[Rfam]
RNA sequence: UCGGUGCAAUGAACGAUCGCGUUAAUACGAGGAAAGUCCGAGCUGCUCUAAGAUGUAGUUCCAUUUAACGAAUGGCUGGGGUAACCCAAGGGAUAGUGCAACAGAAAGUAAACUACCACUUUAUUUUGAUGAGGUGGAAAAGGUGAAAUGGUGGGGUAAGAGCCUACCAGCGUUUUUGGUAACAUCAACGGCUUUGCAAACCCAACUUGCAGCAAGAAGGGAUGGUUUAAUCUUAGAAUAAAACCCUUCGCUUGAACUAAAUUGUAAAAUUUAGUCUAGAUAAAUGAUCGUUUGAAAAACAGAACUCGGCUUAUAGUUGCACCGAAAUU
Numbered sequence: 001u002c003g004g005u006g007c008a009a010u011g012a013a014c015g016a017u018c019g020c021g022u023u024a025a026u027a028c029g030a031g032g033a034a035a036g037u038c039c040g041a042g043c044u045g046c047u048c049u050a051a052g053a054u055g056u057a058g059u060u061c062c063a064u065u066u067a068a069c070g071a072a073u074g075g076c077u078g079g080g081g082u083a084a085c086c087c088a089a090g091g092g093a094u095a096g097u098g099c100a101a102c103a104g105a106a107a108g109u110a111a112a113c114u115a116c117c118a119c120u121u122u123a124u125u126u127u128g129a130u131g132a133g134g135u136g137g138a139a140a141a142g143g144u145g146a147a148a149u150g151g152u153g154g155g156g157u158a159a160g161a162g163c164c165u166a167c168c169a170g171c172g173u174u175u176u177u178g179g180u181a182a183c184a185u186c187a188a189c190g191g192c193u194u195u196g197c198a199a200a201c202c203c204a205a206c207u208u209g210c211a212g213c214a215a216g217a218a219g220g221g222a223u224g225g226u227u228u229a230a231u232c233u234u235a236g237a238a239u240a241a242a243a244c245c246c247u248u249c250g251c252u253u254g255a256a257c258u259a260a261a262u263u264g265u266a267a268a269a270u271u272u273a274g275u276c277u278a279g280a281u282a283a284a285u286g287a288u289c290g291u292u293u294g295a296a297a298a299a300c301a302g303a304a305c306u307c308g309g310c311u312u313a314u315a316g317u318u319g320c321a322c323c324g325a326a327a328u329u
Stems, first nucleotide, its partner, number of pairs: 001325010011314001012292007020029003034312003038309005043212004057207004061075005076090001077088004091203002096201002098197003113142002116137008150168006170192001171190004177184002216249004224245005256275008
Bacterial RNase P class A: a 329-nucleotide RNA sequence from Campylobacter ureolyticus. The base pairs follow the family's consensus structure, which is taken from published work. Lineage of the source: Bacteria > Campylobacterota > Epsilonproteobacteria > Campylobacterales > Campylobacter ureolyticus. Its family is annotated with dimeric ribonuclease P complex, tRNA processing and ribonuclease P activity in the Gene Ontology. The family's RNA type in Rfam is ribozyme.